RNA sequence: UUUUUAGUAUAAAUAUGUCCUAUGUAGUGUUUGGGAAAUACUUAUAGUAAAA
Number, nucleotide and partner (000 for none) at each position: 001u000002u000003u000004u000005u000006a048007g000008u046009a045010u044011a043012a042013a000014u040015a039016u038017g000018u036019c035020c034021u033022a031023u000024g000025u000026a000027g000028u000029g000030u000031u022032u000033g021034g020035g019036a018037a000038a016039u015040a014041c000042u012043u011044a010045u009046a008047g000048u006049a000050a000051a000052a000

The record is a 52-nucleotide RNA sequence from Ursus americanus, which matches "mir-1302 microRNA precursor family" in Rfam. Pairs were carried over by alignment from the consensus structure, which was predicted with WAR. A search with the family's covariance model found it, with a score of 63 bits.